GcvB RNA: a 199-nucleotide sequence from Moellerella wisconsensis. The family's RNA type in Rfam is non-coding RNA gene. The literature on the family includes a 2007 paper in Genes Dev by Sharma et al., "A small RNA regulates multiple ABC transporter mRNAs by targeting C/A-rich elements inside and upstream of ribosome-binding sites". Rfam links the family to the GO terms regulation of gene expression and mRNA binding. It scores 152 bits against the family's covariance model.
[Rfam]
RNA sequence: ACUUCCUAAGCCGGAACGAAAAGUUUCAAAGUUUUGCUACUUUGGAGCUUUUGGCUUUGUGGUUGUGAUGUUGUGUUUGCAAGUUGUCUAGUAAUACUAGACUUUGUAGCUAUGCUACUGUUUUUUUUCACUUCCUGUACAUUUACCCUGUCUGUCCAUAGUGAUUUUUUAAUACACCGCUUCGGCGGUGUUUUUUUUU
Numbered sequence: 001a002c003u004u005c006c007u008a009a010g011c012c013g014g015a016a017c018g019a020a021a022a023g024u025u026u027c028a029a030a031g032u033u034u035u036g037c038u039a040c041u042u043u044g045g046a047g048c049u050u051u052u053g054g055c056u057u058u059g060u061g062g063u064u065g066u067g068a069u070g071u072u073g074u075g076u077u078u079g080c081a082a083g084u085u086g087u088c089u090a091g092u093a094a095u096a097c098u099a100g101a102c103u104u105u106g107u108a109g110c111u112a113u114g115c116u117a118c119u120g121u122u123u124u125u126u127u128u129c130a131c132u133u134c135c136u137g138u139a140c141a142u143u144u145a146c147c148c149u150g151u152c153u154g155u156c157c158a159u160a161g162u163g164a165u166u167u168u169u170u171a172a173u174a175c176a177c178c179g180c181u182u183c184g185g186c187g188g189u190g191u192u193u194u195u196u197u198u199u
Base pairs, nucleotide, nucleotide: 009056010055011054012053015052016051021050022049023048024047025046026045027044028043029042030041031040032039086102087101088100089099090098091097106118107117108116109115110114141169174191175190176189177188178187179186180185